[Rfam]
RNA sequence: UAAAGAUUAAAAAUAUUCGCUUAUAUAUUUCUGGUAAUAAGGUCUAGAUGUUUCUACUCAGCUACCGUAAAAAGCUGAACUAUAAGCUAGUUGGAGGUAUUU
Numbered sequence: 001u002a003a004a005g006a007u008u009a010a011a012a013a014u015a016u017u018c019g020c021u022u023a024u025a026u027a028u029u030u031c032u033g034g035u036a037a038u039a040a041g042g043u044c045u046a047g048a049u050g051u052u053u054c055u056a057c058u059c060a061g062c063u064a065c066c067g068u069a070a071a072a073a074g075c076u077g078a079a080c081u082a083u084a085a086g087c088u089a090g091u092u093g094g095a096g097g098u099a100u101u102u
Base pairs, nucleotide, nucleotide: 019087020086021085022084023083024082025081030048031047032046033045034044058078059077060076061075062074063073

The record is a 102-nucleotide sequence from Clostridium disporicum, which matches "Purine riboswitch aptamer" in Rfam. The source organism's lineage runs through Bacteria, Bacillati, Clostridia, Eubacteriales and Clostridium. The match comes from Rfam's covariance-model search (81 bits). The base pairs follow the family's consensus structure, which is taken from published work. Rfam links the family to the GO term purine nucleobase biosynthetic process.